The record is an 80-nucleotide sequence from Oreochromis niloticus, which matches "mir-27 microRNA precursor family" in Rfam. A reference for the family is Chen et al. (2005), "The developmental miRNA profiles of zebrafish as determined by small RNA cloning", Genes Dev.
[Rfam]
RNA sequence: UGAAGAUGCAGAACUUAGCUCAUUAGUGAGCAUUACACAAAAAAGGAAAUUGUUCACAGUGGCUAAGUUCAGUGUCCAAC
Number, nucleotide and partner (000 for none) at each position: 001u000002g000003a000004a000005g000006a000007u000008g000009c000010a000011g070012a069013a068014c067015u066016u065017a064018g063019c062020u061021c000022a000023u000024u000025a000026g057027u056028g055029a054030g053031c052032a051033u000034u000035a000036c000037a000038c000039a000040a000041a000042a000043a000044a000045g000046g000047a000048a000049a000050u000051u032052g031053u030054u029055c028056a027057c026058a000059g000060u000061g020062g019063c018064u017065a016066a015067g014068u013069u012070c011071a000072g000073u000074g000075u000076c000077c000078a000079a000080c000